[Rfam]
RNA sequence: UCUUCAUUUUACGUGCUCUCUCGCCGAUUGGAGAGGUGAGGGAGUGUGCGAAAUGAAGAGA
Numbered sequence: 001u002c003u004u005c006a007u008u009u010u011a012c013g014u015g016c017u018c019u020c021u022c023g024c025c026g027a028u029u030g031g032a033g034a035g036g037u038g039a040g041g042g043a044g045u046g047u048g049c050g051a052a053a054u055g056a057a058g059a060g061a
Stems, first nucleotide, its partner, number of pairs: 001059007010050001012048006019041004